[Rfam]
RNA sequence: CCUGUGGAGCGUUACAGCAAACGCUAGUAGCCUGUCAGUAAUGACGACCAACGCGGACGCUUUGAAGCAGGAA
Numbered sequence: 001c002c003u004g005u006g007g008a009g010c011g012u013u014a015c016a017g018c019a020a021a022c023g024c025u026a027g028u029a030g031c032c033u034g035u036c037a038g039u040a041a042u043g044a045c046g047a048c049c050a051a052c053g054c055g056g057a058c059g060c061u062u063u064g065a066a067g068c069a070g071g072a073a
Stems, first nucleotide, its partner, number of pairs: 001071005009060005022055003030048001032046001035044002
The record is a 73-nucleotide sequence, which matches "RAGATH-18 RNA" in Rfam. It is annotated as a small RNA. Pairs were carried over by alignment from the consensus structure, which is taken from published work. About the family: Actinobacteria, Firmicutes, Fusobacteria, Thermotogae (1 example). It is one of the family's seed sequences.